[Rfam]
RNA: Alphaproteobacteria transfer-messenger RNA
RNA sequence: CCCCUUCCAACCGGGCGUCCGAGGCCCUAUAUUCAAUUUGCCGGCGCAAGCCGGAUAUGGCGAUAAACGGAAAUCGGAAUAAACUCUUCGGACCCGGGGGCAGUACCCGGCGCCUCCACCAGAGCCCGUCAGGGGCGGGCUGCGGCGGGGGCGAAACAGGAUCGACGAGAGCGUAAAGGGUCUUCUUUCGCCCGGCAUGGUACCGCCGUCAUCGGACCAAACAUAUAGUUGCCAACGACAACUAUGCUCCGGUUGCUCAGGCCGCGUGAGCGGUUUGAUCUCUGGGAAAUAAGUCCAAACGGGUAGCACCGUAAGGCGGGGUUCGCAGGCACCUGGCAACAGAAGCCUGCACU
Numbered sequence: 001c002c003c004c005u006u007c008c009a010a011c012c013g014g015g016c017g018u019c020c021g022a023g024g025c026c027c028u029a030u031a032u033u034c035a036a037u038u039u040g041c042c043g044g045c046g047c048a049a050g051c052c053g054g055a056u057a058u059g060g061c062g063a064u065a066a067a068c069g070g071a072a073a074u075c076g077g078a079a080u081a082a083a084c085u086c087u088u089c090g091g092a093c094c095c096g097g098g099g100g101c102a103g104u105a106c107c108c109g110g111c112g113c114c115u116c117c118a119c120c121a122g123a124g125c126c127c128g129u130c131a132g133g134g135g136c137g138g139g140c141u142g143c144g145g146c147g148g149g150g151g152c153g154a155a156a157c158a159g160g161a162u163c164g165a166c167g168a169g170a171g172c173g174u175a176a177a178g179g180g181u182c183u184u185c186u187u188u189c190g191c192c193c194g195g196c197a198u199g200g201u202a203c204c205g206c207c208g209u210c211a212u213c214g215g216a217c218c219a220a221a222c223a224u225a226u227a228g229u230u231g232c233c234a235a236c237g238a239c240a241a242c243u244a245u246g247c248u249c250c251g252g253u254u255g256c257u258c259a260g261g262c263c264g265c266g267u268g269a270g271c272g273g274u275u276u277g278a279u280c281u282c283u284g285g286g287a288a289a290u291a292a293g294u295c296c297a298a299a300c301g302g303g304u305a306g307c308a309c310c311g312u313a314a315g316g317c318g319g320g321g322u323u324c325g326c327a328g329g330c331a332c333c334u335g336g337c338a339a340c341a342g343a344a345g346c347c348u349g350c351a352c353u
Base pairs, nucleotide, nucleotide: 041054042053043052044051059192060191061190062189063188069185070184071183073181074180075179084171085170086169088168089167090166094110095109096108097107098106111153112152113151114150115149116148117147193208194207195206196205198219199218200217203215204214319334320333321332322331325350326349327348328347329346330345